Purine riboswitch aptamer: a 98-nucleotide sequence from Clostridium sp. USBA 49.
RNA sequence: UCAAAUAUUGAAGAAUUAACUCAUAUAUCCCCUGAAUAUGGCAGGGAGUUUCUACCGGAAGCCGUAAAUUUCCGACUAUGAGUGAAUAUUAAUAUGUU
Number, nucleotide and partner (000 for none) at each position: 001u000002c000003a000004a000005a000006u000007a000008u000009u000010g000011a000012a000013g000014a000015a000016u000017u000018a000019a083020c082021u081022c080023a079024u078025a077026u000027a000028u000029c000030c046031c045032c044033u043034g042035a000036a000037u000038a000039u000040g000041g000042c034043a033044g032045g031046g030047a000048g000049u000050u000051u000052c000053u000054a000055c000056c074057g073058g072059a071060a070061g069062c000063c000064g000065u000066a000067a000068a000069u061070u060071u059072c058073c057074g056075a000076c000077u025078a024079u023080g022081a021082g020083u019084g000085a000086a000087u000088a000089u000090u000091a000092a000093u000094a000095u000096g000097u000098u000
Rfam's curators write: Riboswitches are metabolite binding domains within certain messenger RNAs that serve as precision sensors for their corresponding targets.